Background
The record is a 372-nucleotide RNA sequence from endosymbiont GvMRE of Glomus versiforme, which matches "Bacterial RNase P class B" in Rfam. Rfam describes the family as follows. Ribonuclease P (RNase P) is a ubiquitous endoribonuclease, found in archaea, bacteria and eukarya as well as chloroplasts and mitochondria. Its best characterised activity is the generation of mature 5'-ends of tRNAs by cleaving the 5'-leader elements of precursor-tRNAs. Cellular RNase Ps are ribonucleoproteins. It is annotated as a ribozyme.
RNA sequence: AUGAAAACUGAUGGCAGUUGUUAAUUAUAUUAAUAUUAAUAAAUAAUUGAGGAAAGUCCGUACUCACACUUGCUGGAAUGCAAGUAGUUUUGAUGCUAGAUCCAAUAAAUCUAGGCGAAAAUUUUUUCGACGGCUGAUGAAAAUAUCUAAAUGCUGUUUUUUUUUGGCAGAUGGUAUAGUAGUCUAUAAAAGUGCUAUAGUGACGAUUACUAAGGAAACUUAGGAAGUGAGACUUCGUAAACCCCAUCAGUGAGCAAUCCAAACUAUUUAAAUUGGUAGGAGCACUAGAGAAAAAGAACAAUAAUUUGACUUUAGUAAUUCUUAGAAAGAAUUAAGAUAAAUCAUCAGUUAAAAACAAAAUACGGCUUAUUU
Numbered sequence: 001a002u003g004a005a006a007a008c009u010g011a012u013g014g015c016a017g018u019u020g021u022u023a024a025u026u027a028u029a030u031u032a033a034u035a036u037u038a039a040u041a042a043a044u045a046a047u048u049g050a051g052g053a054a055a056g057u058c059c060g061u062a063c064u065c066a067c068a069c070u071u072g073c074u075g076g077a078a079u080g081c082a083a084g085u086a087g088u089u090u091u092g093a094u095g096c097u098a099g100a101u102c103c104a105a106u107a108a109a110u111c112u113a114g115g116c117g118a119a120a121a122u123u124u125u126u127u128c129g130a131c132g133g134c135u136g137a138u139g140a141a142a143a144u145a146u147c148u149a150a151a152u153g154c155u156g157u158u159u160u161u162u163u164u165u166g167g168c169a170g171a172u173g174g175u176a177u178a179g180u181a182g183u184c185u186a187u188a189a190a191a192g193u194g195c196u197a198u199a200g201u202g203a204c205g206a207u208u209a210c211u212a213a214g215g216a217a218a219c220u221u222a223g224g225a226a227g228u229g230a231g232a233c234u235u236c237g238u239a240a241a242c243c244c245c246a247u248c249a250g251u252g253a254g255c256a257a258u259c260c261a262a263a264c265u266a267u268u269u270a271a272a273u274u275g276g277u278a279g280g281a282g283c284a285c286u287a288g289a290g291a292a293a294a295a296g297a298a299c300a301a302u303a304a305u306u307u308g309a310c311u312u313u314a315g316u317a318a319u320u321c322u323u324a325g326a327a328a329g330a331a332u333u334a335a336g337a338u339a340a341a342u343c344a345u346c347a348g349u350u351a352a353a354a355a356c357a358a359a360a361u362a363c364g365g366c367u368u369a370u371u372u
Base pairs, nucleotide, nucleotide: 005372006370007349008348009347010346011345012344013343015049016048017047018046019045020044021043022042054368055367056366058365059364060363061362062361063254064253065252066251067250068085069084070083071082072081073080091249092248093247094246095245096114097113098112099111100110101109115131116129117128118127119126120125132244133243136184137183138182144176145175146174147173152169153168154167155166156165192242193241194238195237207226208225210223211222212221213220214219258281259280260279285315286314287313288312289311290310316334317333318332319331320330321329